Rfam assigns this 79-nucleotide RNA sequence to the family "freshwater-2 RNA". It is one of the family's seed sequences.
[Rfam]
RNA sequence: UUCCACAAUAAACGUGGAAUUUAUGCAGUAGACCAACUGCGUAGUGGGUUAGAACCCACACAUAAGGAGAAACAAAAUG
Numbered sequence: 001u002u003c004c005a006c007a008a009u010a011a012a013c014g015u016g017g018a019a020u021u022u023a024u025g026c027a028g029u030a031g032a033c034c035a036a037c038u039g040c041g042u043a044g045u046g047g048g049u050u051a052g053a054a055c056c057c058a059c060a061c062a063u064a065a066g067g068a069g070a071a072a073c074a075a076a077a078u079g
Base pairs, nucleotide, nucleotide: 001019002018003017004016005015006014022043023042024041025040026039027038028037044059045058046057047056